[Rfam]
RNA: U11 spliceosomal RNA
RNA sequence: AAAAAGGGCUUCUGCUGUGCUUAGCACGGGUGGGGUGGGGAUAACCACUCCACUCGCGGAAUCGCCAUCAAGAGAUUUCGGAAGCACAAUUUUUAACAUAGGGGAAGCUGGUGAUCUACAGUCCCGGCGCCCCG
Numbered sequence: 001a002a003a004a005a006g007g008g009c010u011u012c013u014g015c016u017g018u019g020c021u022u023a024g025c026a027c028g029g030g031u032g033g034g035g036u037g038g039g040g041a042u043a044a045c046c047a048c049u050c051c052a053c054u055c056g057c058g059g060a061a062u063c064g065c066c067a068u069c070a071a072g073a074g075a076u077u078u079c080g081g082a083a084g085c086a087c088a089a090u091u092u093u094u095a096a097c098a099u100a101g102g103g104g105a106a107g108c109u110g111g112u113g114a115u116c117u118a119c120a121g122u123c124c125c126g127g128c129g130c131c132c133c134g
Stems, first nucleotide, its partner, number of pairs: 008085005013026005027056012057080007102132003107128005113123003